A member of the RNA family "U5 spliceosomal RNA" from Actinidia chinensis, 118 nucleotides long.
RNA sequence: AGCCGCGCGGUGAGCACAAAGCGAACUAUUCUUUCGCCUUUUACUAAAGAAUACCGUGUGCUCGCCGCAAAUAGCGGCAUACGCCAAUUUUUGGAGGGGCCUUCCAUCUUGGUUGGUC
Number, nucleotide and partner (000 for none) at each position: 001a000002g000003c077004c076005g075006c074007g000008c067009g066010g065011u064012g063013a062014g061015c060016a059017c058018a057019a000020a000021g000022c000023g000024a000025a000026c000027u053028a052029u051030u050031c049032u048033u047034u046035c000036g000037c000038c000039u000040u000041u000042u000043a000044c000045u000046a034047a033048a032049g031050a030051a029052u028053a027054c000055c000056g000057u018058g017059u016060g015061c014062u013063c012064g011065c010066c009067g008068c000069a000070a000071a000072u000073a000074g006075c005076g004077g003078c000079a000080u000081a000082c000083g000084c000085c000086a000087a000088u000089u000090u000091u000092u000093g000094g000095a000096g000097g000098g118099g117100c116101c115102u000103u000104c000105c000106a000107u000108c000109u000110u000111g000112g000113u000114u000115g101116g100117u099118c098
It scores 95 bits against the family's covariance model. Lineage of the source: Eukaryota > eudicotyledons > Gunneridae > asterids > Actinidia chinensis.